[Rfam]
RNA sequence: AGCCUUCUGUAUCCGUUCUGGAAUUUCGUCACACACCAAAACACAAGGGCUGAUGAGACUUCCAAGAUAACUGAAGCG
Numbered sequence: 001a002g003c004c005u006u007c008u009g010u011a012u013c014c015g016u017u018c019u020g021g022a023a024u025u026u027c028g029u030c031a032c033a034c035a036c037c038a039a040a041a042c043a044c045a046a047g048g049g050c051u052g053a054u055g056a057g058a059c060u061u062c063c064a065a066g067a068u069a070a071c072u073g074a075a076g077c078g
Stems, first nucleotide, its partner, number of pairs: 002077002005074002010069004016064001020062003024058007
Rfam assigns this 78-nucleotide RNA sequence from Schistosoma margrebowiei to the family "mir-3492 microRNA precursor family". Gene Ontology terms of the family: miRNA-mediated post-transcriptional gene silencing and RISC complex. The family has 2 seed sequences and 21,496 matches in Rfam 15.1. Pairs were carried over by alignment from the consensus structure, which was predicted with RNAalifold. Taxonomically the source falls in Schistosoma (Eukaryota, Lophotrochozoa, Rhabditophora, Digenea).